[Rfam]
RNA sequence: ACAAUUAAGCCUGUUAACGGGCGGGCCAACUGUUGCCUGAAAAAGGGGUCA
Dot-bracket structure: ........(((((....))))).............................

Description
algC RNA: a 51-nucleotide RNA sequence. It is one of the family's seed sequences.